RNA sequence: UAUUGGGCUAGACUGGAGGGUUAGGGGUCCUCUGUAAGCGCAUAUCCCCUAUCGGCGCGGUCGAAGUUCAAGAGGCGGCAGUUCAAUCGGGUUUUGGCCCAGUUGUUCGAUGUCGAAACUUCGUCCCACAGGAUCAGUGGUAGCAGGAUUUAGGCUGUAGGGCCGGAAUUAACUGUUUUAACCAUGGGAACGGGUCAGGUCUGGAAAGAAGCAGCUCUACUGUGGACAGCUGAUGCUUGCGGAGCAACGGGGUGGAGUCGAGUUUCUGGAUCACCAACUCUCGCGAGGCCUGUCCACUCUUGAACAUGCCCAUUA
Numbered sequence: 001u002a003u004u005g006g007g008c009u010a011g012a013c014u015g016g017a018g019g020g021u022u023a024g025g026g027g028u029c030c031u032c033u034g035u036a037a038g039c040g041c042a043u044a045u046c047c048c049c050u051a052u053c054g055g056c057g058c059g060g061u062c063g064a065a066g067u068u069c070a071a072g073a074g075g076c077g078g079c080a081g082u083u084c085a086a087u088c089g090g091g092u093u094u095u096g097g098c099c100c101a102g103u104u105g106u107u108c109g110a111u112g113u114c115g116a117a118a119c120u121u122c123g124u125c126c127c128a129c130a131g132g133a134u135c136a137g138u139g140g141u142a143g144c145a146g147g148a149u150u151u152a153g154g155c156u157g158u159a160g161g162g163c164c165g166g167a168a169u170u171a172a173c174u175g176u177u178u179u180a181a182c183c184a185u186g187g188g189a190a191c192g193g194g195u196c197a198g199g200u201c202u203g204g205a206a207a208g209a210a211g212c213a214g215c216u217c218u219a220c221u222g223u224g225g226a227c228a229g230c231u232g233a234u235g236c237u238u239g240c241g242g243a244g245c246a247a248c249g250g251g252g253u254g255g256a257g258u259c260g261a262g263u264u265u266c267u268g269g270a271u272c273a274c275c276a277a278c279u280c281u282c283g284c285g286a287g288g289c290c291u292g293u294c295c296a297c298u299c300u301u302g303a304a305c306a307u308g309c310c311c312a313u314u315a
Stems, first nucleotide, its partner, number of pairs: 001315002004312005011062004015033007038058004066305009077294004081289003088283004094277004099269004105263007113255001118253007126242002129239004133234005138228002140179001142177005147170005153164004182225006192217004200209003
Dot-bracket structure: ((.(((((..(((((((((((.....)))))))....((((.............))))))))...(((((((((..(((((((....((((..((((.((((..(((((((.(....(((((((.((.((((((((((((.((((((((((.((((....)))).)))))..))))).)..((((((....((((....(((....)))....))))..)))))).)).))))).)))).))....))))))).).)))))))..))))....))))..))))...))).))))..)))))))))..))))).))
The family of this 315-nucleotide sequence from Methanobacterium lacus is "Archaeal signal recognition particle RNA". The match comes from Rfam's covariance-model search (204 bits). The family is grouped with related families in Rfam's "SRP clan". The organism belongs to Methanobacterium, within Archaea. It is annotated as a non-coding RNA gene. The family's consensus secondary structure is taken from published work. A reference for the family is Batey et al. (2000), "Crystal structure of the ribonucleoprotein core of the signal recognition particle", Science. Its family is annotated with SRP-dependent cotranslational protein targeting to membrane, signal sequence recognition and signal recognition particle, plasma membrane targeting in the Gene Ontology.